[Rfam]
The family of this 72-nucleotide RNA from Chrysemys picta is "tRNA". The family's RNA type in Rfam is transfer RNA. The source organism's lineage runs through Eukaryota, Eumetazoa, Craniata, Teleostomi and Chrysemys picta. Rfam links the family to the GO term triplet codon-amino acid adaptor activity.
RNA sequence: GGCCUCAUGGUGCAACGGUAGCGCAUCUGUCUCCAGAUCAGACGGCUGCGUGUUCAAAUCACAUUGAGGUCA
Numbered sequence: 001g002g003c004c005u006c007a008u009g010g011u012g013c014a015a016c017g018g019u020a021g022c023g024c025a026u027c028u029g030u031c032u033c034c035a036g037a038u039c040a041g042a043c044g045g046c047u048g049c050g051u052g053u054u055c056a057a058a059u060c061a062c063a064u065u066g067a068g069g070u071c072a
Base pairs, nucleotide, nucleotide: 001071002070003069004068005067006066007065010024011023012022013021026042027041028040029039048064050062051061052060